[Rfam]
RNA: mir-1343 microRNA precursor family
RNA sequence: CUGGUGUCGGUGCUGGGGAGUGGCCCCCGGGCGGGCCUCUGCCCCUUUUGGGGCCCGCACUCUCGUUCUGUGCCCG
Numbered sequence: 001c002u003g004g005u006g007u008c009g010g011u012g013c014u015g016g017g018g019a020g021u022g023g024c025c026c027c028c029g030g031g032c033g034g035g036c037c038u039c040u041g042c043c044c045c046u047u048u049u050g051g052g053g054c055c056c057g058c059a060c061u062c063u064c065g066u067u068c069u070g071u072g073c074c075c076g
Stems, first nucleotide, its partner, number of pairs: 003074003008070003012066002015063004020058004025053007033044004